A member of the RNA family "chrB-a RNA" from Sphingomonas sp. FARSPH, 79 nucleotides long. It scores 78 bits against the family's covariance model.
[Rfam]
RNA sequence: GGCAUGGGGAUAGCGAUCUCCCCACGAGGCGUCAGCCAGAGCAUCGCGUCCAGCACGAUUAUGCAAGGGACGCAUCAUG
Numbered sequence: 001g002g003c004a005u006g007g008g009g010a011u012a013g014c015g016a017u018c019u020c021c022c023c024a025c026g027a028g029g030c031g032u033c034a035g036c037c038a039g040a041g042c043a044u045c046g047c048g049u050c051c052a053g054c055a056c057g058a059u060u061a062u063g064c065a066a067g068g069g070a071c072g073c074a075u076c077a078u079g
Stems, first nucleotide, its partner, number of pairs: 005024006046073006